[Rfam]
RNA sequence: UGACGUCGGGAUCGCCCCCAGUCAGCGCGUUGCGCCCACUGGGGCAUUUGUG
Numbered sequence: 001u002g003a004c005g006u007c008g009g010g011a012u013c014g015c016c017c018c019c020a021g022u023c024a025g026c027g028c029g030u031u032g033c034g035c036c037c038a039c040u041g042g043g044g045c046a047u048u049u050g051u052g
Stems, first nucleotide, its partner, number of pairs: 016044007025035004
RNA: ffh sRNA
Organism: Sulfitobacter indolifex